[Rfam]
The family of this 77-nucleotide RNA sequence from Xanthomonas oryzae is "Xanthomonas sRNA sX9". Taxonomically the source falls in Xanthomonas oryzae pv. oryzae (Bacteria, Pseudomonadati, Lysobacteraceae, Xanthomonas). By type it is a small RNA.
RNA sequence: AUGUACUGCGCGCACAUACCGGUUUUGAGUGUGCCGUCCACGCCCGCCUGACGAUUGCUUGCUACGUCUGCUUGGCC
Numbered sequence: 001a002u003g004u005a006c007u008g009c010g011c012g013c014a015c016a017u018a019c020c021g022g023u024u025u026u027g028a029g030u031g032u033g034c035c036g037u038c039c040a041c042g043c044c045c046g047c048c049u050g051a052c053g054a055u056u057g058c059u060u061g062c063u064a065c066g067u068c069u070g071c072u073u074g075g076c077c
Stems, first nucleotide, its partner, number of pairs: 002016003006012001020036004025031001048075004054069001
The family's consensus secondary structure was predicted with RNAalifold. For this family Rfam cites "Genome-wide transcriptome analysis of the plant pathogen Xanthomonas identifies sRNAs with putative virulence functions" (Schmidtke et al., Nucleic Acids Res, 2011).